[Rfam]
RNA: TPP riboswitch aptamer (THI element)
Organism: Alkalimonas amylolytica
RNA sequence: GCGCCUACCAGGGGGUGCAUUGCUUUUGAUAAAAGCGUGCUGAGAUGCCUAGCGGCGAACCCCAUGAACCUGAUCCGGAUCAUGCCGGCGGAGGGAUGGUGUUACUGACUCCU
Numbered sequence: 001g002c003g004c005c006u007a008c009c010a011g012g013g014g015g016u017g018c019a020u021u022g023c024u025u026u027u028g029a030u031a032a033a034a035g036c037g038u039g040c041u042g043a044g045a046u047g048c049c050u051a052g053c054g055g056c057g058a059a060c061c062c063c064a065u066g067a068a069c070c071u072g073a074u075c076c077g078g079a080u081c082a083u084g085c086c087g088g089c090g091g092a093g094g095g096a097u098g099g100u101g102u103u104a105c106u107g108a109c110u111c112c113u
Base pairs, nucleotide, nucleotide: 006101007100008099009098010097011063012062013061014060016057017040018039019038020037047056048055049054069094070093071092075088076087077086078085